[Rfam]
A member of the RNA family "FMN riboswitch aptamer (RFN element)" from Aggregatibacter segnis, 148 nucleotides long.
About the family: The RFN element is a highly conserved domain that is found frequently in the 5'-untranslated regions of prokaryotic mRNAs that encode for flavin mononucleotide (FMN) biosynthesis and transport proteins.
Pairs were carried over by alignment from the consensus structure, which is taken from published work.
RNA sequence: CCGCAUUCUCAGGGCAGGGCGAAAUUCCCUACCGGUGGUAAAUAUGUUUAGACAUAAAGCCCACGAGCGUUUGCCUUUAUAGGCAAAGUCAGCAGAUUUGGUGUAAUUCCAAAGCCGACAGUUAAAGUCUGGAUGAAAGAGAAUUUUA
Numbered sequence: 001c002c003g004c005a006u007u008c009u010c011a012g013g014g015c016a017g018g019g020c021g022a023a024a025u026u027c028c029c030u031a032c033c034g035g036u037g038g039u040a041a042a043u044a045u046g047u048u049u050a051g052a053c054a055u056a057a058a059g060c061c062c063a064c065g066a067g068c069g070u071u072u073g074c075c076u077u078u079a080u081a082g083g084c085a086a087a088g089u090c091a092g093c094a095g096a097u098u099u100g101g102u103g104u105a106a107u108u109c110c111a112a113a114g115c116c117g118a119c120a121g122u123u124a125a126a127g128u129c130u131g132g133a134u135g136a137a138a139g140a141g142a143a144u145u146u147u148a
Base pairs, nucleotide, nucleotide: 003146005144006143007142008141009140010139017029018028019027031128032127033117034116035064036063037062038061059115060114067093068092097113098112099111100110101109119131120130121129